[Rfam]
RNA sequence: CUCACUUUGUGUAUAUAACACACACGUGUCGGCACAUGCGCCGGGGUGCUCCCGGGUCUUUUACCCUGGGGUCGGCGUUAUGGGACACGUGGAGGCAUAAC
Numbered sequence: 001c002u003c004a005c006u007u008u009g010u011g012u013a014u015a016u017a018a019c020a021c022a023c024a025c026g027u028g029u030c031g032g033c034a035c036a037u038g039c040g041c042c043g044g045g046g047u048g049c050u051c052c053c054g055g056g057u058c059u060u061u062u063a064c065c066c067u068g069g070g071g072u073c074g075g076c077g078u079u080a081u082g083g084g085a086c087a088c089g090u091g092g093a094g095g096c097a098u099a100a101c
Stems, first nucleotide, its partner, number of pairs: 023091008035082004040076004048072005
Notes:
Rfam assigns this 101-nucleotide RNA from Affinibrenneria salicis to the family "t44 RNA". Lineage of the source: Bacteria > Pseudomonadati > Pseudomonadota > Enterobacterales > Affinibrenneria. The family's RNA type in Rfam is small RNA. On this family, see Tjaden et al., Nucleic Acids Res 2002: "Transcriptome analysis of Escherichia coli using high-density oligonucleotide probe arrays".